[Rfam]
RNA sequence: UUGAAAGUUCAUGGUUCAACACCAUGGAUCUCCAGGUGGGUCAAGGUUAGAAAUGCACCAACCUGAAGUACUCCAUGCUGUUGAGCUGUUCACUA
Numbered sequence: 001u002u003g004a005a006a007g008u009u010c011a012u013g014g015u016u017c018a019a020c021a022c023c024a025u026g027g028a029u030c031u032c033c034a035g036g037u038g039g040g041u042c043a044a045g046g047u048u049a050g051a052a053a054u055g056c057a058c059c060a061a062c063c064u065g066a067a068g069u070a071c072u073c074c075a076u077g078c079u080g081u082u083g084a085g086c087u088g089u090u091c092a093c094u095a
Stems, first nucleotide, its partner, number of pairs: 016084006023077006030068002033065005039059003
RNA: mir-490 microRNA precursor family
Organism: Phascolarctos cinereus